[Rfam]
RNA sequence: UUGACAGCACUGGAGACUAAAGUCCUGACUUUAUCCACCGCGCAGGUUCAGCACGGGUAGCAGCAGUGCAAGAUUCUCCACACUGCCCUGUGCCUCAGCCCUGACCUGGAGGGAGCACCUCUAGGGUGAGAGCGUAGUUCAGUCUCCGUGCUUCUUCAGCCCUCGGAUCCU
Numbered sequence: 001u002u003g004a005c006a007g008c009a010c011u012g013g014a015g016a017c018u019a020a021a022g023u024c025c026u027g028a029c030u031u032u033a034u035c036c037a038c039c040g041c042g043c044a045g046g047u048u049c050a051g052c053a054c055g056g057g058u059a060g061c062a063g064c065a066g067u068g069c070a071a072g073a074u075u076c077u078c079c080a081c082a083c084u085g086c087c088c089u090g091u092g093c094c095u096c097a098g099c100c101c102u103g104a105c106c107u108g109g110a111g112g113g114a115g116c117a118c119c120u121c122u123a124g125g126g127u128g129a130g131a132g133c134g135u136a137g138u139u140c141a142g143u144c145u146c147c148g149u150g151c152u153u154c155u156u157c158a159g160c161c162c163u164c165g166g167a168u169c170c171u
Base pairs, nucleotide, nucleotide: 002158003157004156007152011148012147013146014145015144016143017142018141020139021138024134030130031129032128033127034126035125038103040101042099051093052092053091054090055089056088063086064085065084066083106124107123108122109121110120111119112118

Shown here is a 171-nucleotide RNA sequence from Caloenas nicobarica, a member of the family "TUC338". The match comes from Rfam's covariance-model search (121 bits). The family has 34 seed sequences and 75,615 matches in Rfam 15.1. By type it is a cis-regulatory element.